[Rfam]
RNA sequence: GCACGUUCUCAGGGCGGGGUGUAAUUCCCCACCGGCGGUAGCAGGCAGAAAUGCCUGAAGCCCGCGAGCGCUUCCAGCUUCUGCUGGAAGGUCAGCAGAUCCGGUCAGAUUCCGGAGCCGACGGUAUAGUCCGGAUGAAAGAGAGCAAGC
Numbered sequence: 001g002c003a004c005g006u007u008c009u010c011a012g013g014g015c016g017g018g019g020u021g022u023a024a025u026u027c028c029c030c031a032c033c034g035g036c037g038g039u040a041g042c043a044g045g046c047a048g049a050a051a052u053g054c055c056u057g058a059a060g061c062c063c064g065c066g067a068g069c070g071c072u073u074c075c076a077g078c079u080u081c082u083g084c085u086g087g088a089a090g091g092u093c094a095g096c097a098g099a100u101c102c103g104g105u106c107a108g109a110u111u112c113c114g115g116a117g118c119c120g121a122c123g124g125u126a127u128a129g130u131c132c133g134g135a136u137g138a139a140a141g142a143g144a145g146c147a148a149g150c
Stems, first nucleotide, its partner, number of pairs: 005146006017029003031130002033120002035065004060118002068096002100116005122133003
The family of this 150-nucleotide sequence from Phyllobacterium sp. YR531 is "FMN riboswitch aptamer (RFN element)". Lineage of the source: Bacteria > Pseudomonadota > Alphaproteobacteria > Hyphomicrobiales > Phyllobacterium. From the family's description: The RFN element is a highly conserved domain that is found frequently in the 5'-untranslated regions of prokaryotic mRNAs that encode for flavin mononucleotide (FMN) biosynthesis and transport proteins. This element is a metabolite-dependent riboswitch that directly binds FMN in the absence of proteins.